[Rfam]
RNA: Bacterial RNase P class A
RNA sequence: AGAGUUAGUCGGGUAGUCGCUAUAUCUUGAAAAUCAGAUAUGGAGGAAAGUCCGGGCUUCACAGGACAAGGUGCCAGGUAACGCCUGGGGGGCGUGAGCCUAUGGAAAGUGCCACAGAAAAUAUACCGCCUAAGUCCAUUAAGGACCGGUAAGGGUGAAAUGGUGCGGUUGGUGAGUUAUCGGCUUAAUGUAAGAGCGCACCGCAUUGAUGGUAACAUCAAUGGCAGGGUAAACCCCACCUGAAGCAAGACAAAUAGGGGAAUUAUAAUGUGGUCCGCAUUGUUCCCGGGUAAGUUGCUAGAGGUGUUUGGUGACAAGCAUCCCAGAUGAAUGACUGCCAUACGGAUGAUUUUUCAAGCCGGCUUUUGAU
Number, nucleotide and partner (000 for none) at each position: 001a366002g365003a364004g363005u362006u361007a000008g359009u358010c000011g355012g339013g338014u337015a336016g335017u334018c333019g000020c043021u042022a041023u040024a039025u038026c037027u036028u000029g000030a000031a000032a000033a000034u000035c000036a027037g026038a025039u024040a023041u022042g021043g020044a000045g000046g000047a000048a000049a000050g000051u000052c000053c000054g000055g000056g000057c245058u244059u243060c242061a000062c000063a000064g276065g275066a274067c273068a000069a241070g240071g239072u238073g237074c088075c087076a086077g085078g084079u000080a000081a000082c000083g000084c078085c077086u076087g075088g074089g103090g101091g100092g099093c098094g000095u000096g000097a000098g093099c092100c091101u090102a000103u089104g236105g235106a000107a000108a000109g234110u233111g230112c229113c228114a000115c000116a000117g000118a000119a000120a000121a000122u000123a000124u000125a000126c154127c153128g150129c149130c148131u000132a000133a000134g146135u145136c144137c143138a000139u000140u000141a000142a000143g137144g136145a135146c134147c000148g130149g129150u128151a000152a000153g127154g126155g000156u000157g000158a000159a000160a000161u000162g202163g201164u200165g199166c198167g197168g000169u000170u000171g000172g000173u000174g000175a000176g000177u000178u000179a000180u000181c000182g000183g000184c000185u000186u000187a000188a000189u000190g000191u000192a000193a000194g000195a000196g000197c167198g166199c165200a164201c163202c162203g225204c223205a222206u221207u220208g219209a218210u217211g216212g000213u000214a000215a000216c211217a210218u209219c208220a207221a206222u205223g204224g000225c203226a000227g000228g113229g112230u111231a000232a000233a110234c109235c105236c104237c073238a072239c071240c070241u069242g060243a059244a058245g057246c000247a000248a000249g296250a295251c294252a000253a000254a000255u000256a000257g000258g287259g286260g285261a284262a283263u282264u000265a000266u000267a281268a280269u279270g278271u277272g000273g067274u066275c065276c064277g271278c270279a269280u268281u267282g263283u262284u261285c260286c259287c258288g000289g000290g000291u000292a000293a000294g251295u250296u249297g000298c000299u000300a000301g000302a000303g322304g321305u320306g319307u318308u317309u316310g315311g000312u000313g000314a000315c310316a309317a308318g307319c306320a305321u304322c303323c000324c000325a000326g000327a000328u000329g000330a000331a000332u000333g018334a017335c016336u015337g014338c013339c012340a000341u000342a000343c000344g000345g000346a000347u000348g000349a000350u000351u000352u000353u000354u000355c011356a000357a000358g009359c008360c000361g006362g005363c004364u003365u002366u001367u000368g000369a000370u000